Rfam assigns this 122-nucleotide RNA sequence from Pseudaminobacter salicylatoxidans to the family "Alphaproteobacterial ar14". Rfam describes the family as follows. Smr14C2 was renamed NfeR1 (Nodule Formation Efficiency RNA) highly expressed in salt stress and during the symbiotic interaction on legume roots. The source organism's lineage runs through Bacteria, Pseudomonadota, Hyphomicrobiales, Phyllobacteriaceae and Pseudaminobacter. A reference for the family is del Val et al. (2012), "A survey of sRNA families in alpha-proteobacteria", RNA Biol.
RNA sequence: GAAAUUUCGUCGGCGCCUACCUCCUCCCAGGCCCCGAUGAAUAAGGCCAGUGAUAUCCUCCUCCCGUCACUGACCACUCUAACGACACCCGCCGGAACCUCCUCCCCCGGCGGGUGUUGUCG
Numbered sequence: 001g002a003a004a005u006u007u008c009g010u011c012g013g014c015g016c017c018u019a020c021c022u023c024c025u026c027c028c029a030g031g032c033c034c035c036g037a038u039g040a041a042u043a044a045g046g047c048c049a050g051u052g053a054u055a056u057c058c059u060c061c062u063c064c065c066g067u068c069a070c071u072g073a074c075c076a077c078u079c080u081a082a083c084g085a086c087a088c089c090c091g092c093c094g095g096a097a098c099c100u101c102c103u104c105c106c107c108c109g110g111c112g113g114g115u116g117u118u119g120u121c122g
Stems, first nucleotide, its partner, number of pairs: 007040003011036003015032003045075002048072006085117011